[Rfam]
mir-1421 microRNA precursor family: a 74-nucleotide RNA sequence from Ornithorhynchus anatinus. The base pairs follow the family's consensus structure, which was predicted with RNAalifold. NCBI's taxonomy places the organism under Eukaryota, Gnathostomata, Monotremata, Ornithorhynchidae, Ornithorhynchus. Gene Ontology terms of the family: miRNA-mediated post-transcriptional gene silencing and RISC complex.
RNA sequence: CGGUGUGAGGAGGACAUAUGUGGUGUGGUUUGAUAGUAGAAUAUGCUGCAUCAUGCGUGACCUCCCCACGCCGU
Numbered sequence: 001c002g003g004u005g006u007g008a009g010g011a012g013g014a015c016a017u018a019u020g021u022g023g024u025g026u027g028g029u030u031u032g033a034u035a036g037u038a039g040a041a042u043a044u045g046c047u048g049c050a051u052c053a054u055g056c057g058u059g060a061c062c063u064c065c066c067c068a069c070g071c072c073g074u
Base pairs, nucleotide, nucleotide: 003071004070005069006068007067009065010064011063012062013061015059016058017057019055020054021053023051024050025049026048027047